Clostridiales-2 RNA: an 82-nucleotide sequence from Geosporobacter ferrireducens. A search with the family's covariance model found it, with a score of 69 bits. The family's consensus secondary structure is taken from published work.
RNA sequence: AACGGUCCAGCACCGUAGGGGAUGAAAUCCCCUGCCGCCUUCAGGAAGGUGCUCAGACAGCUUUGCUGUCGUCGAAGGAAAC
Numbered sequence: 001a002a003c004g005g006u007c008c009a010g011c012a013c014c015g016u017a018g019g020g021g022a023u024g025a026a027a028u029c030c031c032c033u034g035c036c037g038c039c040u041u042c043a044g045g046a047a048g049g050u051g052c053u054c055a056g057a058c059a060g061c062u063u064u065g066c067u068g069u070c071g072u073c074g075a076a077g078g079a080a081a082c
Base pairs, nucleotide, nucleotide: 015035016034017033018032019031020030021029022028056070057069058068059067060066
Dot-bracket structure: ..............((((((((.....))))))))....................(((((.....)))))............